[Rfam]
RNA sequence: GAGAUAUGAUGAGUGGUCAACGCUCGCAACAAAUAUGCGAGAGGGGUGUCCGCCCCAGCCUGGUUACGACAAUUGGGCACUCUCAUAUUUACCAAUCUGAUCCC
Dot-bracket structure: (.((.........((((.....(((((.........))))).((((((((..........((((.......)))))))))))).......))))......)).)
A member of the RNA family "Small nucleolar RNA Z279/snoR105/snoR108" from Vitis rotundifolia, 104 nucleotides long. From the family's description: This family includes the plant snoRNAs known as Z279, snoR105 and snoR108. It scores 90 bits against the family's covariance model. The source organism's lineage runs through Eukaryota, Streptophytina, Spermatophyta, Gunneridae and Vitis. Gene Ontology terms of the family: RNA processing and nucleolus. The family's RNA type in Rfam is C/D-box small nucleolar RNA. On this family, see Marker et al., Curr Biol 2002: "Experimental RNomics: identification of 140 candidates for small non-messenger RNAs in the plant Arabidopsis thaliana".